[Rfam]
RNA sequence: CCGCAUUCUUAAACCCUCUUGGUAGCCUUGCUCUAAGCUUCCAAGAUAUGAGUGAAUGCCACAGAAAAUUGCAGAUGAAUCCAAAAUGCUAGGUAUUUUCCUCUGACUUGGCAUUAUUUCAGAUCUGUGACAACU
Numbered sequence: 001c002c003g004c005a006u007u008c009u010u011a012a013a014c015c016c017u018c019u020u021g022g023u024a025g026c027c028u029u030g031c032u033c034u035a036a037g038c039u040u041c042c043a044a045g046a047u048a049u050g051a052g053u054g055a056a057u058g059c060c061a062c063a064g065a066a067a068a069u070u071g072c073a074g075a076u077g078a079a080u081c082c083a084a085a086a087u088g089c090u091a092g093g094u095a096u097u098u099u100c101c102u103c104u105g106a107c108u109u110g111g112c113a114u115u116a117u118u119u120c121a122g123a124u125c126u127g128u129g130a131c132a133a134c135u
Stems, first nucleotide, its partner, number of pairs: 003059004008052004017046006024039003063135002069130007085115007093107002
RNA: Small nucleolar RNA SNORA14